[Rfam]
RNA: MIR5298 microRNA precursor family
Organism: Medicago truncatula
RNA sequence: UUAAAUUUUCUUCAUUUUCUUCUAGAUUUUUUUUGAAAUUCUUGUUGUGGAAGGUUGAUGGAGAUGAUAUGAAGAUGAAAAAAAGAAGAAG
Numbered sequence: 001u002u003a004a005a006u007u008u009u010c011u012u013c014a015u016u017u018u019c020u021u022c023u024a025g026a027u028u029u030u031u032u033u034u035g036a037a038a039u040u041c042u043u044g045u046u047g048u049g050g051a052a053g054g055u056u057g058a059u060g061g062a063g064a065u066g067a068u069a070u071g072a073a074g075a076u077g078a079a080a081a082a083a084a085g086a087a088g089a090a091g
Stems, first nucleotide, its partner, number of pairs: 006084004011079009037056004042051002